[Rfam]
RNA sequence: ACAGGAAAAUGACCUAUGAAUUGACAGACAGUAUAUUUAGAUUGUCUGUCAUUUCUGUAGGCCAAAGUUCUGC
Numbered sequence: 001a002c003a004g005g006a007a008a009a010u011g012a013c014c015u016a017u018g019a020a021u022u023g024a025c026a027g028a029c030a031g032u033a034u035a036u037u038u039a040g041a042u043u044g045u046c047u048g049u050c051a052u053u054u055c056u057g058u059a060g061g062c063c064a065a066a067g068u069u070c071u072g073c
Stems, first nucleotide, its partner, number of pairs: 002072005010064002013061004018055003022051010